[Rfam]
RNA sequence: AUAGCCUCGAAGGUGGAAUAUAGGAACACCUUCUGGUUCAGACAGAGGCUUAUAUCAAAACUCGAAUCAGAUUGGAGAGGGUGAAAAUGCUUUUUACCCAUCGAAAUCUUCUUCCUUUUCUUGGAUAGAUUCGAAUAUCU
Numbered sequence: 001a002u003a004g005c006c007u008c009g010a011a012g013g014u015g016g017a018a019u020a021u022a023g024g025a026a027c028a029c030c031u032u033c034u035g036g037u038u039c040a041g042a043c044a045g046a047g048g049c050u051u052a053u054a055u056c057a058a059a060a061c062u063c064g065a066a067u068c069a070g071a072u073u074g075g076a077g078a079g080g081g082u083g084a085a086a087a088u089g090c091u092u093u094u095u096a097c098c099c100a101u102c103g104a105a106a107u108c109u110u111c112u113u114c115c116u117u118u119u120c121u122u123g124g125a126u127a128g129a130u131u132c133g134a135a136u137a138u139c140u
Base pairs, nucleotide, nucleotide: 003038004037005036006035009033010032011031013029014028015027063133064132065131066130067129068128070108071107072106075102077101080098081097082096083095084094085093113125114124115123
Annotation
The family of this 140-nucleotide RNA sequence from Brassica rapa is "Small nucleolar RNA snoR138". Taxonomically the source falls in Brassica (Eukaryota, Streptophytina, Gunneridae, rosids). It scores 76 bits against the family's covariance model. The family's consensus secondary structure was predicted with mfold. By type it is an H/ACA-box small nucleolar RNA.